[Rfam]
Small nucleolar RNA snR191: a 243-nucleotide RNA from Coniochaeta hoffmannii.
Gene Ontology terms of the family: RNA processing and nucleolus.
Its Rfam clan is "SNORA74 clan".

RNA sequence: UCCCAAUGGUUUAGUCAGGGUACUCCAGCUUCCUCUUCGGAGGAUGUUCUACUGUGGGAUGCAUCCGUUACAUCGUUGGGAGAUCAAUAUCCACCUCCCGCGCCCUUGGUCUCCGGACUGGGGGUGGAUGGUUCCCGUCUUGGGGGCCGUCAUGGGAACCGGACGUGUUCCAUUAGAGUUGAAGACAACCACCACAUAACUGGGUGGCUCGUGGUCGUUUUCUUAGUAAUGUCUCAUACAUCU
Numbered sequence: 001u002c003c004c005a006a007u008g009g010u011u012u013a014g015u016c017a018g019g020g021u022a023c024u025c026c027a028g029c030u031u032c033c034u035c036u037u038c039g040g041a042g043g044a045u046g047u048u049c050u051a052c053u054g055u056g057g058g059a060u061g062c063a064u065c066c067g068u069u070a071c072a073u074c075g076u077u078g079g080g081a082g083a084u085c086a087a088u089a090u091c092c093a094c095c096u097c098c099c100g101c102g103c104c105c106u107u108g109g110u111c112u113c114c115g116g117a118c119u120g121g122g123g124g125u126g127g128a129u130g131g132u133u134c135c136c137g138u139c140u141u142g143g144g145g146g147c148c149g150u151c152a153u154g155g156g157a158a159c160c161g162g163a164c165g166u167g168u169u170c171c172a173u174u175a176g177a178g179u180u181g182a183a184g185a186c187a188a189c190c191a192c193c194a195c196a197u198a199a200c201u202g203g204g205u206g207g208c209u210c211g212u213g214g215u216c217g218u219u220u221u222c223u224u225a226g227u228a229a230u231g232u233c234u235c236a237u238a239c240a241u242c243u
Stems, first nucleotide, its partner, number of pairs: 003079005018066004023061001024058004029043005090163003098127004103122003107115002131147007165237003171231003181222004188215003193206003
A search with the family's covariance model found it, with a score of 50 bits.
The source organism's lineage runs through Eukaryota, Ascomycota, Sordariomycetes, Coniochaetales and Coniochaeta.
By type it is an H/ACA-box small nucleolar RNA.